Record summary:
The record is a 75-nucleotide sequence from Xanthomonas albilineans, which matches "Xanthomonas sRNA sX9" in Rfam.

[Rfam]
RNA sequence: AUGUCCCCCUGUACACGGCGGUUCCGGCGGGCUGUCCGCGCCCACCCGACAGCGCCUCGCGACGUUUUGUUAGCC
Numbered sequence: 001a002u003g004u005c006c007c008c009c010u011g012u013a014c015a016c017g018g019c020g021g022u023u024c025c026g027g028c029g030g031g032c033u034g035u036c037c038g039c040g041c042c043c044a045c046c047c048g049a050c051a052g053c054g055c056c057u058c059g060c061g062a063c064g065u066u067u068u069g070u071u072a073g074c075c
Base pairs, nucleotide, nucleotide: 002015003014004013006011019034020033021032022031024029046073048071049070050069051068052067